[Rfam]
RNA sequence: GAGAAAAGAAGUGAGAAUCUUCUUCGCCGUAAACCCAAGGUUUCCUACGCGAUGCUCGUCAUCGUAGGGUUAGUCGGGACCUAAGUCGAGUCCGAAAGGGGUAGACGAUGGCAAAUCGGUUAAUAUUCCGAUACCGACAUUAUAUCGUUUGAGUGAUGGGGGGACGCAUAGAGUUAGACGAGGUCACUGAUGGAAUAGUGGCUCGAAGGACGUAGGUCGUGAAGUAGGCAAAUCCGCUUCACAUGAGACCGAGAUCUUACAGGCAGACCAAUCUCUUCGGAGAGCGGUUUGAAUCGUCGAUACUGUCGUGCCGAGAAAAGCCUCUAAACGAGAUAUAAUGUUGCCCGUACCGUAAACCAACACAGGUGGGUGAGAUGAGUAUUCUAAGGCGCG
Number, nucleotide and partner (000 for none) at each position: 001g000002a000003g000004a000005a000006a024007a023008g022009a021010a020011g019012u000013g000014a000015g000016a000017a000018u000019c011020u010021u009022c008023u007024u006025c391026g390027c389028c388029g000030u000031a000032a000033a371034c370035c369036c368037a000038a000039g351040g350041u000042u000043u000044c068045c067046u066047a065048c064049g063050c000051g000052a000053u061054g060055c000056u000057c000058g000059u000060c054061a053062u000063c049064g048065u047066a046067g045068g044069g000070u000071u000072a000073g000074u000075c347076g346077g345078g344079a000080c111081c110082u000083a000084a000085g106086u105087c104088g000089a102090g000091u100092c099093c098094g000095a000096a000097a000098g093099g092100g091101g000102u089103a000104g087105a086106c085107g000108a000109u000110g081111g080112c000113a000114a000115a132116u131117c130118g129119g128120u000121u000122a000123a000124u000125a000126u000127u000128c119129c118130g117131a116132u115133a000134c000135c343136g342137a341138c340139a339140u338141u337142a336143u335144a334145u333146c000147g000148u000149u000150u000151g000152a000153g329154u328155g000156a000157u000158g324159g323160g322161g321162g000163g000164a000165c000166g311167c310168a309169u308170a000171g000172a304173g303174u302175u000176a000177g298178a297179c296180g295181a294182g203183g202184u201185c200186a199187c198188u000189g000190a000191u000192g000193g000194a000195a000196u000197a000198g187199u186200g185201g184202c183203u182204c262205g000206a000207a000208g257209g256210a255211c000212g000213u000214a000215g250216g249217u248218c000219g242220u241221g240222a239223a238224g237225u236226a000227g235228g234229c000230a000231a000232a000233u000234c228235c227236g225237c224238u223239u222240c221241a220242c219243a000244u000245g000246a000247g000248a217249c216250c215251g000252a000253g000254a000255u210256c209257u208258u000259a000260c000261a000262g204263g000264c291265a290266g289267a288268c287269c286270a000271a000272u000273c000274u000275c000276u000277u000278c000279g000280g000281a000282g000283a000284g000285c000286g269287g268288u267289u266290u265291g264292a000293a000294u181295c180296g179297u178298c177299g000300a000301u000302a174303c173304u172305g000306u000307c000308g169309u168310g167311c166312c000313g000314a000315g000316a000317a000318a000319a000320g000321c161322c160323u159324c158325u000326a000327a000328a154329c153330g000331a000332g000333a145334u144335a143336u142337a141338a140339u139340g138341u137342u136343g135344c078345c077346c076347g075348u000349a000350c040351c039352g000353u000354a000355a000356a000357c366358c365359a000360a000361c000362a000363c000364a000365g358366g357367u000368g036369g035370g034371u033372g000373a385374g384375a383376u000377g000378a000379g000380u000381a000382u000383u375384c374385u373386a000387a000388g028389g027390c026391g025392c000393g000
A member of the RNA family "Bacterial large subunit ribosomal RNA" from Sulfurimonas aquatica, 393 nucleotides of a longer RNA.